[Rfam]
RNA: Lysine riboswitch aptamer
Organism: Lachnospiraceae bacterium 2_1_46FAA
RNA sequence: CUGAAAGAUAGAGGUGCGUUUUUAAAGAGUACCGUUUAGUUUAAGUGGGACAGACUUCUAAAUGGGAAAGGGAAAGAUGCCGAAGGAUAAAUUCUUUGUCCGAGGAUUUAUUCUGGGACGUUGUAUAAGAUACAACGUACUGUCACAGAAGUGUGGAGCGCUAUCAUAGAU
Numbered sequence: 001c002u003g004a005a006a007g008a009u010a011g012a013g014g015u016g017c018g019u020u021u022u023u024a025a026a027g028a029g030u031a032c033c034g035u036u037u038a039g040u041u042u043a044a045g046u047g048g049g050a051c052a053g054a055c056u057u058c059u060a061a062a063u064g065g066g067a068a069a070g071g072g073a074a075a076g077a078u079g080c081c082g083a084a085g086g087a088u089a090a091a092u093u094c095u096u097u098g099u100c101c102g103a104g105g106a107u108u109u110a111u112u113c114u115g116g117g118a119c120g121u122u123g124u125a126u127a128a129g130a131u132a133c134a135a136c137g138u139a140c141u142g143u144c145a146c147a148g149a150a151g152u153g154u155g156g157a158g159c160g161c162u163a164u165c166a167u168a169g170a171u
Stems, first nucleotide, its partner, number of pairs: 007165005016080008032065008084114012115141002118138008143156005